[Rfam]
RNA sequence: ACCCUCCUGAUGCUUACUUACCACAGGCUGUUCUUACACUGACUGUAUAAAAAGAGGAGGGAAAAUAAAUCUACCCCAUAUACACCUCAGCCCAGGCCCUGUGCCUGCCUGAAUGGGAAGACAUAG
Numbered sequence: 001a002c003c004c005u006c007c008u009g010a011u012g013c014u015u016a017c018u019u020a021c022c023a024c025a026g027g028c029u030g031u032u033c034u035u036a037c038a039c040u041g042a043c044u045g046u047a048u049a050a051a052a053a054g055a056g057g058a059g060g061g062a063a064a065a066u067a068a069a070u071c072u073a074c075c076c077c078a079u080a081u082a083c084a085c086c087u088c089a090g091c092c093c094a095g096g097c098c099c100u101g102u103g104c105c106u107g108c109c110u111g112a113a114u115g116g117g118a119a120g121a122c123a124u125a126g
Base pairs, nucleotide, nucleotide: 002061003060004059005058006057007056008055024045025044026043030037031036075117076116077115078114079113088111089110090109093107094106095105096104097103
The record is a 126-nucleotide RNA from Castor canadensis, which matches "Small nucleolar RNA SNORA51" in Rfam. ACA51 is a member of the H/ACA class of snoRNA that guide the sites of modification of uridines to pseudouridines. A search with the family's covariance model found it, with a score of 96 bits. The organism belongs to Castor, within Eukaryota. Its family is annotated with nucleolus and RNA processing in the Gene Ontology. The base pairs follow the family's consensus structure, which was predicted with PFOLD. It is annotated as an H/ACA-box small nucleolar RNA.